tp2: a 124-nucleotide sequence from Xenorhabdus szentirmaii. Taxonomically the source falls in Xenorhabdus szentirmaii (Bacteria, Pseudomonadota, Enterobacterales, Xenorhabdus). Pairs were carried over by alignment from the consensus structure, which was predicted with RNAalifold. Rfam classes the family as a small RNA. The match comes from Rfam's covariance-model search (59 bits).
[Rfam]
RNA sequence: UUUAUUCCUUAUCUGUUAUCUAUUUCUAAUGGUUGUUGGAGCCUAUCUUCUGGUCAUACCCUUUGACAAACCGCCUGUUAUGACCGGAAGAUAGGCCCUGCUAUAUAUCGCUGCUAAAACUCUU
Number, nucleotide and partner (000 for none) at each position: 001u000002u000003u107004a106005u000006u000007c000008c000009u000010u000011a000012u000013c000014u000015g000016u000017u000018a000019u000020c000021u000022a000023u000024u000025u100026c000027u000028a000029a000030u000031g000032g000033u000034u000035g000036u000037u000038g099039g098040a000041g096042c095043c094044u093045a092046u091047c090048u000049u000050c087051u086052g085053g084054u083055c000056a081057u080058a079059c000060c077061c000062u000063u000064u000065g000066a000067c000068a000069a000070a000071c000072c000073g000074c000075c000076u000077g060078u000079u058080a057081u056082g000083a054084c053085c052086g051087g050088a000089a000090g047091a046092u045093a044094g043095g042096c041097c000098c039099u038100g025101c000102u000103a000104u000105a000106u004107a003108u000109c000110g000111c000112u000113g000114c000115u000116a000117a000118a000119a000120c000121u000122c000123u000124u000